About this RNA
SAM riboswitch aptamer (S box leader): a 116-nucleotide RNA from bacterium 1xD42-67. The family's consensus secondary structure is taken from published work. A search with the family's covariance model found it, with a score of 78 bits.

[Rfam]
RNA sequence: GCCUUAUCAAGAGCGGUGGAGGGAACGGCCCGAUGAAGCCCGGCAACCUGCAAAAGCGGAGCUGAUCUGUUGAUGCAAGGUGCUAAAUCCGGCGGUAGUGUAUCGAAAGAUGAGGG
Numbered sequence: 001g002c003c004u005u006a007u008c009a010a011g012a013g014c015g016g017u018g019g020a021g022g023g024a025a026c027g028g029c030c031c032g033a034u035g036a037a038g039c040c041c042g043g044c045a046a047c048c049u050g051c052a053a054a055a056g057c058g059g060a061g062c063u064g065a066u067c068u069g070u071u072g073a074u075g076c077a078a079g080g081u082g083c084u085a086a087a088u089c090c091g092g093c094g095g096u097a098g099u100g101u102a103u104c105g106a107a108a109g110a111u112g113a114g115g116g
Base pairs, nucleotide, nucleotide: 002115003114004113005112006111007110008109013041015040016039017038021031022030023029026091027090028089042084043083044082045081047080048079049077050076051075052074088108093105094104095103096102097101